Background:
This 80-nucleotide RNA sequence from Flavobacterium psychrophilum belongs to the Rfam family "Flavo-1 RNA". The family has 201 seed sequences and 7,497 matches in Rfam 15.1. Rfam classes the family as a small RNA. It is one of the family's seed sequences.
[Rfam]
RNA sequence: GCCUAGCCCUGAUAGAAGUGAAAAUCCUUUUUGUUUUUCCUUUAAAAACAAAAAGAUUGCAACGAAUAGCAGGAAAUUGC
Numbered sequence: 001g002c003c004u005a006g007c008c009c010u011g012a013u014a015g016a017a018g019u020g021a022a023a024a025u026c027c028u029u030u031u032u033g034u035u036u037u038u039c040c041u042u043u044a045a046a047a048a049c050a051a052a053a054a055g056a057u058u059g060c061a062a063c064g065a066a067u068a069g070c071a072g073g074a075a076a077u078u079g080c
Base pairs, nucleotide, nucleotide: 009072010071011070013068014067018063019062023058024057025056026055029053030052031051032050033049034048035047036046037045038044